[Rfam]
RNA sequence: CGGGGGCCGCCGGGGAGCUCGGUGACCACGGGCUGAGAGGGCGGAUGGCACUCCGCCGACCCGAAGUACCUGAUCCGGGUAAUGCCGGCGGAGGGAAGCGUCGUCAUCAUGCGC
Numbered sequence: 001c002g003g004g005g006g007c008c009g010c011c012g013g014g015g016a017g018c019u020c021g022g023u024g025a026c027c028a029c030g031g032g033c034u035g036a037g038a039g040g041g042c043g044g045a046u047g048g049c050a051c052u053c054c055g056c057c058g059a060c061c062c063g064a065a066g067u068a069c070c071u072g073a074u075c076c077g078g079g080u081a082a083u084g085c086c087g088g089c090g091g092a093g094g095g096a097a098g099c100g101u102c103g104u105c106a107u108c109a110u111g112c113g114c
Stems, first nucleotide, its partner, number of pairs: 006102001008100003011063004017033005040057005069094003075088004